[Rfam]
RNA sequence: CCUCCGGUUCUUGACACGCCUGCGUCGGUCUGUGGCCUGUGCGUGUUUAUAAGCGAGGCAGAAAAAUCUCAGCACAAAUGUCUUCGGUACCAACGAGCUGCCAUCGUCUGGUCCUAUCCUCAUUGGCUGAGACACCC
Numbered sequence: 001c002c003u004c005c006g007g008u009u010c011u012u013g014a015c016a017c018g019c020c021u022g023c024g025u026c027g028g029u030c031u032g033u034g035g036c037c038u039g040u041g042c043g044u045g046u047u048u049a050u051a052a053g054c055g056a057g058g059c060a061g062a063a064a065a066a067u068c069u070c071a072g073c074a075c076a077a078a079u080g081u082c083u084u085c086g087g088u089a090c091c092a093a094c095g096a097g098c099u100g101c102c103a104u105c106g107u108c109u110g111g112u113c114c115u116a117u118c119c120u121c122a123u124u125g126g127c128u129g130a131g132a133c134a135c136c137c
Stems, first nucleotide, its partner, number of pairs: 001058004015045005022038001024036002070129004075125002090111003
Rfam assigns this 137-nucleotide RNA sequence from Scyliorhinus torazame to the family "Small nucleolar RNA SNORA57".
The family's consensus secondary structure was predicted with PFOLD.
Rfam links the family to the GO terms RNA processing and nucleolus.
On this family, see Vitali et al., Nucleic Acids Res 2003: "Identification of 13 novel human modification guide RNAs".
Rfam's curators write: U99 belongs to the H/ACA class of snoRNAs which are thought to guide the sites of modification of uridines to pseudouridines, the target for this family is unknown.
A search with the family's covariance model found it, with a score of 50 bits.
The family has 26 seed sequences and 1,736 matches in Rfam 15.1.